[Rfam]
RNA sequence: GAGAUCGCGUCCUGAGGCAUCCUCCUCCCAGCCGAUGGACGUGUGACACGCGGGGCAUCCUCCUCCCAGUCCCGUAACGUCGAAACGACGCCCGCCACUACCUCCUCCCAGUGGCGGGCGUUCGUC
Number, nucleotide and partner (000 for none) at each position: 001g000002a000003g000004a000005u000006c000007g042008c041009g040010u000011c038012c037013u000014g000015a000016g033017g032018c000019a000020u000021c000022c000023u000024c000025c000026u000027c000028c000029c000030a000031g000032c017033c016034g000035a000036u000037g012038g011039a000040c009041g008042u007043g000044u000045g000046a000047c000048a000049c000050g075051c074052g073053g072054g071055g070056c069057a000058u000059c000060c000061u000062c000063c000064u000065c000066c000067c000068a000069g056070u055071c054072c053073c052074g051075u050076a000077a000078c000079g000080u000081c000082g000083a000084a000085a000086c000087g000088a121089c120090g119091c118092c117093c116094g115095c114096c113097a112098c111099u000100a000101c000102c000103u000104c000105c000106u000107c000108c000109c000110a000111g098112u097113g096114g095115c094116g093117g092118g091119c090120g089121u088122u000123c000124g000125u000126c000

The family of this 126-nucleotide RNA sequence from a Rhodobacterales bacterium is "Alphaproteobacterial ar14". The family has 118 seed sequences and 784 matches in Rfam 15.1. Rfam classes the family as a small RNA. The base pairs follow the family's consensus structure. Rfam describes the family as follows. Smr14C2 was renamed NfeR1 (Nodule Formation Efficiency RNA) highly expressed in salt stress and during the symbiotic interaction on legume roots.